[Rfam]
RNA sequence: CUGCCGCAGCUUCGCUGAUGUGCGACGGAGUCUCGUUGCUGCGGUAGAGAGUUUGAGACGUCCAUCGCACCGUACUGAAGGUUCUUCGGUACGGCCCGAACACGGGAGAGAACGCUGAGCGUUACAAC
Numbered sequence: 001c002u003g004c005c006g007c008a009g010c011u012u013c014g015c016u017g018a019u020g021u022g023c024g025a026c027g028g029a030g031u032c033u034c035g036u037u038g039c040u041g042c043g044g045u046a047g048a049g050a051g052u053u054u055g056a057g058a059c060g061u062c063c064a065u066c067g068c069a070c071c072g073u074a075c076u077g078a079a080g081g082u083u084c085u086u087c088g089g090u091a092c093g094g095c096c097c098g099a100a101c102a103c104g105g106g107a108g109a110g111a112a113c114g115c116u117g118a119g120c121g122u123u124a125c126a127a128c
Stems, first nucleotide, its partner, number of pairs: 001047010070094010
RNA: atpB RNA